[Rfam]
RNA sequence: GGGCACCUACGGGGGCCUAUAACCAUAGGCGGGGCAACCCGCCUGACAAGCAAACGGAAGACAGACA
Numbered sequence: 001g002g003g004c005a006c007c008u009a010c011g012g013g014g015g016c017c018u019a020u021a022a023c024c025a026u027a028g029g030c031g032g033g034g035c036a037a038c039c040c041g042c043c044u045g046a047c048a049a050g051c052a053a054a055c056g057g058a059a060g061a062c063a064g065a066c067a
Base pairs, nucleotide, nucleotide: 001018002017003016004015006014007013008012027044028043029042030041031040032039033038
About this RNA: This 67-nucleotide RNA sequence from Sulfitobacter brevis belongs to the Rfam family "L2-Alphaproteobacteria ribosomal protein leader". The organism belongs to Sulfitobacter, within Bacteria. By type it is a cis-regulatory leader.